A member of the RNA family "abiF RNA" from Aquimixticola soesokkakensis, 36 nucleotides long.

RNA sequence: CCCCGCACGCCUCUCGGCGAAGCGCAACAGCGGGGU
Numbered sequence: 001c002c003c004c005g006c007a008c009g010c011c012u013c014u015c016g017g018c019g020a021a022g023c024g025c026a027a028c029a030g031c032g033g034g035g036u
Stems, first nucleotide, its partner, number of pairs: 001035006008024003
The family's consensus secondary structure is taken from published work.
A search with the family's covariance model found it, with a score of 37 bits.
The family's RNA type in Rfam is small RNA.
Rfam's curators write: Actinobacteria, Bacteroidetes, Clostridia, Proteobacteria, one Clostridia phage.